Overview:
The record is an 80-nucleotide RNA from Acipenser ruthenus, which matches "mir-27 microRNA precursor family" in Rfam. Its family is annotated with miRNA-mediated post-transcriptional gene silencing and RISC complex in the Gene Ontology. On this family, see Chen et al., Genes Dev 2005: "The developmental miRNA profiles of zebrafish as determined by small RNA cloning". The family's consensus secondary structure was predicted with RNAalifold. The match comes from Rfam's covariance-model search (68 bits).
RNA sequence: UGAAGGCACAGAGCUUAGCUAAUUGGCGAGCAUUGCUCCUCCUGGUAUGUUGUUCACAGUGGCUAAGUUCAGUGCCCUAG
Numbered sequence: 001u002g003a004a005g006g007c008a009c010a011g012a013g014c015u016u017a018g019c020u021a022a023u024u025g026g027c028g029a030g031c032a033u034u035g036c037u038c039c040u041c042c043u044g045g046u047a048u049g050u051u052g053u054u055c056a057c058a059g060u061g062g063c064u065a066a067g068u069u070c071a072g073u074g075c076c077c078u079a080g
Stems, first nucleotide, its partner, number of pairs: 011070010026057001028055005